[Rfam]
Nucleotides: 258
Stems, first nucleotide, its partner, number of pairs: 001258009012249003015242005065228002067225001068078001070128007087121002092116001096112002099108001119235001140220005145177004181213004189205002193201003
Number, partner (000 for none) and nucleotide at each position: 001258c002257c003256c004255g005254c006253c007252c008251g009250g010000g011000u012249c013248c014247g015242u016241g017240g018239u019238u020000g021000c022000g023000c024000c025000g026000g027000a028000c029000c030000a031000c032000u033000c034000g035000u036000c037000c038000c039000u040000c041000g042000c043000g044000g045000g046000g047000c048000a049000g050000u051000g052000g053000a054000c055000c056000g057000g058000c059000a060000a061000g062000c063000c064000g065228a066227u067225g068078c069000c070128a071127g072126u073125c074124g075123c076122a077000g078068g079000c080000g081000a082000a083000a084000c085000g086000g087121u088120c089000c090000a091000c092116g093000u094000a095000a096112g097111g098000c099108g100000a101000c102000u103000u104000c105000u106000u107000g108099u109000c110000g111097u112096c113000c114000g115000a116092u117000c118000a119235c120088g121087g122076u123075g124074c125073g126072g127071c128070u129000u130000a131000g132000a133000a134000g135000u136000a137000a138000g139000u140220c141219c142218u143217g144216c145177c146176c147175c148174g149000c150000c151000g152000g153000a154000g155000g156000c157000c158000c159000a160000g161000a162000u163000g164000a165000c166000c167000u168000c169000c170000g171000a172000c173000c174148c175147g176146g177145g178000a179000g180000a181213a182212g183211g184210g185000g186000g187000u188000a189205g190204u191000g192000g193201c194200g195199g196000c197000u198000a199195c200194c201193g202000c203000u204190g205189c206000g207000a208000g209000a210184c211183c212182c213181u214000c215000a216144g217143c218142a219141g220140g221000c222000g223000g224000a225067u226000g227066g228065u229000g230000g231000g232000g233000u234000c235119g236000a237000a238019g239018a240017c241016c242015g243000a244000g245000g246000u247014c248013g249012g250009c251008c252007g253006g254005g255004u256003g257002g258001g
Rfam assigns this 258-nucleotide RNA to the family "raiA RNA". It is one of the family's seed sequences. The base pairs follow the family's consensus structure, which is taken from published work. The family's RNA type in Rfam is riboswitch.